[Rfam]
Record summary
A member of the RNA family "U12 minor spliceosomal RNA" from Felis catus, 151 nucleotides long.

RNA sequence: AUGCCUUAAACUUCAUGAGUAAGGAAAAUAACAAUUCAGGGUGACACCUGAAUCCUCCCAGCUAAUGUGAGAUGGAUUUUUGAGCAAGUAAAGGUUGCCCCUAAUGUGACUCACCUACUUUGUGAGAUGUUUGAGAGUCACGAUCUGUCCA
Numbered sequence: 001a002u003g004c005c006u007u008a009a010a011c012u013u014c015a016u017g018a019g020u021a022a023g024g025a026a027a028a029u030a031a032c033a034a035u036u037c038a039g040g041g042u043g044a045c046a047c048c049u050g051a052a053u054c055c056u057c058c059c060a061g062c063u064a065a066u067g068u069g070a071g072a073u074g075g076a077u078u079u080u081u082g083a084g085c086a087a088g089u090a091a092a093g094g095u096u097g098c099c100c101c102u103a104a105u106g107u108g109a110c111u112c113a114c115c116u117a118c119u120u121u122g123u124g125a126g127a128u129g130u131u132u133g134a135g136a137g138u139c140a141c142g143a144u145c146u147g148u149c150c151a
Stems, first nucleotide, its partner, number of pairs: 004024005034053007055071003059067001088148002092146006101135002104132001106130003110126005
The pairing is the family consensus, mapped onto this sequence. The source organism's lineage runs through Eukaryota, Opisthokonta, Teleostomi, Tetrapoda and Felis. By type it is a spliceosomal small nuclear RNA. Clan: U2 clan. A search with the family's covariance model found it, with a score of 109 bits.